[Rfam]
RNA sequence: UUUACAGAGCCAUUUUGGCAUGCUGGCUGCCUCCAAAAUUUGCAUUUUCUUUGGGCAACGAUAAUUUUCAAUGGAGGUAGACAGAAUGCCAAAAUGGCUCUGUAAC
Number, nucleotide and partner (000 for none) at each position: 001u000002u000003u000004a000005c000006a000007g000008a000009g000010c000011c096012a000013u000014u000015u092016u091017g090018g089019c088020a087021u000022g000023c000024u083025g082026g000027c080028u079029g078030c077031c076032u075033c074034c073035a000036a000037a000038a000039u000040u000041u000042g000043c000044a000045u000046u000047u000048u000049c000050u000051u000052u000053g000054g000055g000056c000057a000058a000059c000060g000061a000062u000063a000064a000065u000066u000067u000068u000069c000070a000071a000072u000073g034074g033075a032076g031077g030078u029079a028080g027081a000082c025083a024084g000085a000086a000087u020088g019089c018090c017091a016092a015093a000094a000095u000096g011097g000098c000099u000100c000101u000102g000103u000104a000105a000106c000
This 106-nucleotide sequence from Tetracentron sinense belongs to the Rfam family "MIR394 microRNA precursor family". The base pairs follow the family's consensus structure, which was predicted with WAR. A search with the family's covariance model found it, with a score of 72 bits. The literature on the family includes a 2004 paper in Mol Cell by Jones-Rhoades and Bartel, "Computational identification of plant microRNAs and their targets, including a stress-induced miRNA".